[Rfam]
RNA sequence: AGAGUAGGCGCAGGCGGUUGCAGGUCAGCUUGAAGAAAGCUAGCUUGAGGAAAGUCCGGGCUCCCGAAAGACCAAACUUGCUGGGUAACGCCCAGUGCGAGCGAUCGUGAGGAUAGUGCCACAGAAAGAUACCGCCAACACGAUUUUGGAUUGACGAUUUUGGAUUUUGGAUUCAAUCUAAAAUCUAAAAUCUAAAAUCUAAAAUUUUGUCGGUAAGGGUGCAAAGGUGCGGUAAGAGCGCACCAGCACGACUGAGAGGUCGUGGCUCGGUAAACCCCGGUUGGGAGCAAGGUAAAGGAACUACGGUUGGUCUUUUACCAGUUCCGUAAAAAAGAGCCGCUAGAGGCGUCUGGUAACAGGCGUCCCAGAUAGAUAACUGCCCUCAAAAUGUAAGAAUGUUUGGCAAAAUAUUUUUACAUUAGAGAACAGAACCCGGCUUAUGUCCGACUCUCUCC
Numbered sequence: 001a002g003a004g005u006a007g008g009c010g011c012a013g014g015c016g017g018u019u020g021c022a023g024g025u026c027a028g029c030u031u032g033a034a035g036a037a038a039g040c041u042a043g044c045u046u047g048a049g050g051a052a053a054g055u056c057c058g059g060g061c062u063c064c065c066g067a068a069a070g071a072c073c074a075a076a077c078u079u080g081c082u083g084g085g086u087a088a089c090g091c092c093c094a095g096u097g098c099g100a101g102c103g104a105u106c107g108u109g110a111g112g113a114u115a116g117u118g119c120c121a122c123a124g125a126a127a128g129a130u131a132c133c134g135c136c137a138a139c140a141c142g143a144u145u146u147u148g149g150a151u152u153g154a155c156g157a158u159u160u161u162g163g164a165u166u167u168u169g170g171a172u173u174c175a176a177u178c179u180a181a182a183a184u185c186u187a188a189a190a191u192c193u194a195a196a197a198u199c200u201a202a203a204a205u206u207u208u209g210u211c212g213g214u215a216a217g218g219g220u221g222c223a224a225a226g227g228u229g230c231g232g233u234a235a236g237a238g239c240g241c242a243c244c245a246g247c248a249c250g251a252c253u254g255a256g257a258g259g260u261c262g263u264g265g266c267u268c269g270g271u272a273a274a275c276c277c278c279g280g281u282u283g284g285g286a287g288c289a290a291g292g293u294a295a296a297g298g299a300a301c302u303a304c305g306g307u308u309g310g311u312c313u314u315u316u317a318c319c320a321g322u323u324c325c326g327u328a329a330a331a332a333a334g335a336g337c338c339g340c341u342a343g344a345g346g347c348g349u350c351u352g353g354u355a356a357c358a359g360g361c362g363u364c365c366c367a368g369a370u371a372g373a374u375a376a377c378u379g380c381c382c383u384c385a386a387a388a389u390g391u392a393a394g395a396a397u398g399u400u401u402g403g404c405a406a407a408a409u410a411u412u413u414u415u416a417c418a419u420u421a422g423a424g425a426a427c428a429g430a431a432c433c434c435g436g437c438u439u440a441u442g443u444c445c446g447a448c449u450c451u452c453u454c455c
Base pairs, nucleotide, nucleotide: 001451002450003449004448005447007445008444010443011442012441013381014380015379016378017377018376019375021047022046023045024044025043027041028040029039052439053438054437056436057435058434059433060432061287062286063285064284070316071315075282076281077280079279080278081095082094083093084092085091096110097108098107099106100105111277112276116275117274118271119270120269132218133217134214135213136212138210139209140208142206143205144204145203146202147201148200149199150198151197152196226244227243228242229241230240231239246266247264248263249262250261251260252259253258291338292337293336302328303327304326305325306324307321308320309319310318311317345364346363347362348361349360350359351358352357
Dot-bracket structure: (((((.((.((((((((((.(((((.(((.........))).)))))....[[[.[[[[[((((.....[[...(((.(((((((.....)))))(((((....)))).)((...(((((...........(((((.(((.(((((((((((...........................................))))))))))).))).)))..)).......((((((.......)))))).((((((((....))))))).)..)))..))))))))).))))...(((........((((((((((...]])))))..))))).......)))......((((((((....))))))))..........)))))))..................................................]]]]]]]].))))).)))))....